[Rfam]
RNA sequence: CUCUGGAAAGCGAUUUUUCACCGAAGGAGCAACUCCUCAUACAUUGAGGAAGAAUCUCUCAGGUACAAAAACAGAG
Numbered sequence: 001c002u003c004u005g006g007a008a009a010g011c012g013a014u015u016u017u018u019c020a021c022c023g024a025a026g027g028a029g030c031a032a033c034u035c036c037u038c039a040u041a042c043a044u045u046g047a048g049g050a051a052g053a054a055u056c057u058c059u060c061a062g063g064u065a066c067a068a069a070a071a072c073a074g075a076g
Base pairs, nucleotide, nucleotide: 001076002075003074004073005072012018013017020064021063022062023060024059027058028057029056034050035049036048037047038046039045
Record summary:
A member of the RNA family "Glycine riboswitch aptamer" from Alkaliphilus metalliredigens, 76 nucleotides long. The source organism's lineage runs through Bacteria, Bacillati, Natronincolaceae, Alkaliphilus and Alkaliphilus metalliredigens.